L13-Bacteroidia ribosomal protein leader: a 73-nucleotide RNA sequence.
Nucleotides: 073
Base pairs, nucleotide, nucleotide: 001020002019003018004017005016006015031067032066033065034064035063037061039059040058041057043056044055045054046053
Number, partner (000 for none) and nucleotide at each position: 001020g002019g003018g004017c005016a006015c007000c008000c009000c010000a011000a012000a013000a014000a015006g016005u017004g018003c019002c020001c021000a022000a023000a024000c025000u026000g027000c028000g029000u030000g031067u032066g033065a034064a035063u036000a037061g038000c039059c040058c041057g042000u043056u044055u045054c046053a047000u048000u049000g050000g051000c052000c053046u054045g055044g056043a057041c058040g059039g060000a061037c062000g063035g064034u065033u066032c067031g068000u069000g070000a071000a072000u073000c

Background:
Pairs were carried over by alignment from the consensus structure, which is taken from published work.